Rfam assigns this 172-nucleotide RNA sequence from Pseudofrankia inefficax to the family "c-di-AMP riboswitch aptamer (ydaO/yuaA leader)". Gene Ontology terms of the family: cyclic-di-AMP binding and regulation of gene expression.
[Rfam]
RNA sequence: UCCUAGAGAUCGCCAGGGCAGAAGUGGGGGAACCAUGUUCCUCCGGGCCCGCGCGCAGCGCGCGCCCUUGGGGUUAAGCCAGCCAUUUCCCGAGCGUCCUCGGAAGAAAGGCUGGCCGGGCUUCCCGGCCCGAACCCGACAGCUAACCUCACAGGCGUGCGGGAAAGAUUCC
Numbered sequence: 001u002c003c004u005a006g007a008g009a010u011c012g013c014c015a016g017g018g019c020a021g022a023a024g025u026g027g028g029g030g031a032a033c034c035a036u037g038u039u040c041c042u043c044c045g046g047g048c049c050c051g052c053g054c055g056c057a058g059c060g061c062g063c064g065c066c067c068u069u070g071g072g073g074u075u076a077a078g079c080c081a082g083c084c085a086u087u088u089c090c091c092g093a094g095c096g097u098c099c100u101c102g103g104a105a106g107a108a109a110g111g112c113u114g115g116c117c118g119g120g121c122u123u124c125c126c127g128g129c130c131c132g133a134a135c136c137c138g139a140c141a142g143c144u145a146a147c148c149u150c151a152c153a154g155g156c157g158u159g160c161g162g163g164a165a166a167g168a169u170u171c172c
Stems, first nucleotide, its partner, number of pairs: 001022002024152006034070002071137003079115006118131004